A member of the RNA family "c-di-GMP-II-GAG riboswitch aptamer", 87 nucleotides long. Rfam links the family to the GO terms cyclic-di-GMP binding and regulation of gene expression.
RNA sequence: CAGCCGAGUGGGAGCCAAGACCCCCGGUCGAACAUCCGGUCACCCUCGCGAUCGGGGCGAGCAACGGUGAGACCGGCCCCUCAACGA
Number, nucleotide and partner (000 for none) at each position: 001c000002a000003g085004c000005c000006g082007a081008g080009u000010g078011g077012g000013a000014g062015c061016c000017a000018a000019g000020a000021c000022c057023c056024c055025c054026g053027g052028u051029c050030g000031a000032a000033c000034a000035u000036c000037c000038g074039g073040u070041c069042a068043c067044c066045c000046u000047c000048g000049c000050g029051a028052u027053c026054g025055g024056g023057g022058c000059g000060a000061g015062c014063a000064a000065c000066g044067g043068u042069g041070a040071g000072a000073c039074c038075g000076g000077c011078c010079c000080c008081u007082c006083a000084a000085c003086g000087a000